[Rfam]
RNA sequence: UGAAUAACGGGUGAUGGAGCUCACCAAAACUUCCGACGAACGGAUAAUGGCUCCUGCGAUAGA
Numbered sequence: 001u002g003a004a005u006a007a008c009g010g011g012u013g014a015u016g017g018a019g020c021u022c023a024c025c026a027a028a029a030c031u032u033c034c035g036a037c038g039a040a041c042g043g044a045u046a047a048u049g050g051c052u053c054c055u056g057c058g059a060u061a062g063a
Stems, first nucleotide, its partner, number of pairs: 010025004016054006032044004
Dot-bracket structure: .........[[[[..((((((]]]]......((((.....))))....)))))).........

The record is a 63-nucleotide RNA from Alicyclobacillus sp. SO9, which matches "Fluoride riboswitch aptamer (crcB RNA motif)" in Rfam. NCBI's taxonomy places the organism under Bacteria, Bacillati, Bacilli, Alicyclobacillaceae, Alicyclobacillus.